Notes:
Rfam assigns this 100-nucleotide RNA sequence from Triticum aestivum to the family "Small nucleolar RNA R44/J54/Z268 family". It scores 62 bits against the family's covariance model. The base pairs follow the family's consensus structure, which was predicted with PFOLD. Clan: SNORD74 clan.
RNA sequence: UUAGCAAAUGACGAUAAGGAAGACAGGGACUCUGCAGCGCUCCUGAUUUCAAAUCAGGGCCGCGAAUGAUGCAUCAGUCUAGGGGAAUCUCUGAUGCUAA
Numbered sequence: 001u002u003a004g005c006a007a008a009u010g011a012c013g014a015u016a017a018g019g020a021a022g023a024c025a026g027g028g029a030c031u032c033u034g035c036a037g038c039g040c041u042c043c044u045g046a047u048u049u050c051a052a053a054u055c056a057g058g059g060c061c062g063c064g065a066a067u068g069a070u071g072c073a074u075c076a077g078u079c080u081a082g083g084g085g086a087a088u089c090u091c092u093g094a095u096g097c098u099a100a
Base pairs, nucleotide, nucleotide: 002099003098004097005096006095
It is annotated as a C/D-box small nucleolar RNA.